[Rfam]
RNA sequence: GGCAAUGUCGCUCAUUCUAGUAGUAGUAGGAAAGCGCGCCUCCGCGGCGGGAUAACCCCGUACGGACAGGAUGGCGCGCGACCAAGGCUCCCAAAGGGGCCUUUUUUUGUACCCGCC
Number, nucleotide and partner (000 for none) at each position: 001g000002g000003c000004a000005a000006u000007g000008u000009c026010g000011c000012u000013c000014a000015u000016u000017c000018u000019a000020g000021u000022a000023g000024u000025a000026g009027u000028a000029g114030g113031a000032a000033a000034g079035c078036g077037c076038g075039c074040c073041u000042c000043c000044g000045c060046g059047g058048c000049g057050g056051g000052a000053u000054a000055a000056c050057c049058c047059c046060g045061u000062a000063c069064g000065g000066a000067c000068a000069g063070g000071a000072u000073g040074g039075c038076g037077c036078g035079c034080g000081a000082c000083c000084a103085a102086g101087g100088c099089u098090c097091c096092c000093a000094a000095a000096g091097g090098g089099g088100c087101c086102u085103u084104u000105u000106u000107u000108u000109g000110u000111a000112c000113c030114c029115g000116c000117c000

Rhizobiales sRNA Atu_C8: a 117-nucleotide sequence from Roseibium aggregatum. On this family, see Wilms et al., RNA Biol 2012: "Deep sequencing uncovers numerous small RNAs on all four replicons of the plant pathogen Agrobacterium tumefaciens". By type it is a small RNA. Taxonomically the source falls in Roseibium (Bacteria, Pseudomonadota, Alphaproteobacteria, Hyphomicrobiales).